The family of this 102-nucleotide RNA sequence is "Guanidine-I riboswitch aptamer".

RNA sequence: CAAAUAGAUCGCUAGGGUUCCGGCGUUAUAGACAACGUGACUGGUCCGAGAGCAAUCGACCUUCAUUCGGAGGUUACACGGCGGGAUAAAAGCCCGGGAGGU
Dot-bracket structure: ......(((.((..((...((((((((......)))))..).)).))....)).)))(((((((....))))))).(.[...(((.......))).)..]..

Rfam describes the family as follows. This family represents a conserved RNA structure found upstream of the ykkC and yxkD genes in Bacillus subtilis and related genes in other bacteria. The function of this family is unclear although it has been suggested that it may function to switch on efflux pumps and detoxification systems in response to harmful environmental molecules. Rfam's curators put it in the seed alignment.